The record is an 84-nucleotide RNA from Cohnella luojiensis, which matches "Group II catalytic intron D1-D4-1" in Rfam. Rfam links the family to the GO term Group II intron splicing. The base pairs follow the family's consensus structure.
[Rfam]
RNA sequence: UAACCUUACUUGUGAAAGUAGGCAGAACGUACAGAAGUCAGCAGAAGCCAUAGUACGCAGGUGUUGCAACACGAGCGGAAGGGC
Numbered sequence: 001u002a003a004c005c006u007u008a009c010u011u012g013u014g015a016a017a018g019u020a021g022g023c024a025g026a027a028c029g030u031a032c033a034g035a036a037g038u039c040a041g042c043a044g045a046a047g048c049c050a051u052a053g054u055a056c057g058c059a060g061g062u063g064u065u066g067c068a069a070c071a072c073g074a075g076c077g078g079a080a081g082g083g084c
Stems, first nucleotide, its partner, number of pairs: 001025001005022007038045002047084003056077003062071002
The literature on the family includes a 2001 paper in EMBO J by Chu et al., "Control of branch-site choice by a group II intron".